[Rfam]
RNA sequence: CAUGGGUUUAUGGUGUAUUCCAUCUCUUGCACACUGGACCCGGCUUUCGGCUUCAGUUCAGGUCUGUGUGCAAGGGAUGGAAUACGCUAUUGAGUCAUG
Dot-bracket structure: (((((.((.(((((((((((((((((((((((((.((.(.....................).)).))))))))))))))))))))))))).)).)))))
Background:
A member of the RNA family "MIR2950 microRNA precursor family" from Macleaya cordata, 99 nucleotides long. Rfam links the family to the GO terms RISC complex and miRNA-mediated post-transcriptional gene silencing. NCBI's taxonomy places the organism under Eukaryota, Viridiplantae, Mesangiospermae, Papaveroideae, Macleaya. Pairs were carried over by alignment from the consensus structure, which was predicted with RNAalifold.